Background
Small nucleolar RNA SNORA70: a 210-nucleotide RNA from Bos indicus x Bos taurus. For this family Rfam cites "Pseudouridine in RNA: what, where, how, and why" (Charette and Gray, IUBMB Life, 2000). Rfam describes the family as follows. snoRNA U70 seems to be exclusive to mammals and is a member of the H/ACA class of snoRNA which contain H (ANANNA) and ACA box motifs. H/ACA box snoRNAs are involved in the conversion of uridines to pseudouridines (5-ribosyluracil) a constituent of structural RNAs (transfer, ribosomal, small nuclear, and small nucleolar). A search with the family's covariance model found it, with a score of 74 bits. Taxonomically the source falls in Bos (Eukaryota, Bilateria, Craniata, Gnathostomata). Rfam classes the family as an H/ACA-box small nucleolar RNA.

RNA sequence: UUGCAGCCAGUUAAGCCAACUGUGCUCUUUUCCCCAUGAGGGCCCAGUGUGCAGUAGCUGCAGACAGCUACUGGAAUAUUUAAUUCCUAUAUUUCAAUCUUGGAGAGUUAGAUAAAAUAUUUAUCAUAUGCCUGCCUCAUAGCUUAGUCCUUGGUAGUGUAUGCAGCCUGUUGCCUGUAUAGGUAGCCAUAAGGGACCUUGGAGACAACU
Numbered sequence: 001u002u003g004c005a006g007c008c009a010g011u012u013a014a015g016c017c018a019a020c021u022g023u024g025c026u027c028u029u030u031u032c033c034c035c036a037u038g039a040g041g042g043c044c045c046a047g048u049g050u051g052c053a054g055u056a057g058c059u060g061c062a063g064a065c066a067g068c069u070a071c072u073g074g075a076a077u078a079u080u081u082a083a084u085u086c087c088u089a090u091a092u093u094u095c096a097a098u099c100u101u102g103g104a105g106a107g108u109u110a111g112a113u114a115a116a117a118u119a120u121u122u123a124u125c126a127u128a129u130g131c132c133u134g135c136c137u138c139a140u141a142g143c144u145u146a147g148u149c150c151u152u153g154g155u156a157g158u159g160u161a162u163g164c165a166g167c168c169u170g171u172u173g174c175c176u177g178u179a180u181a182g183g184u185a186g187c188c189a190u191a192a193g194g195g196a197c198c199u200u201g202g203a204g205a206c207a208a209c210u
Stems, first nucleotide, its partner, number of pairs: 002053004019048004025042004073198002084185001086183007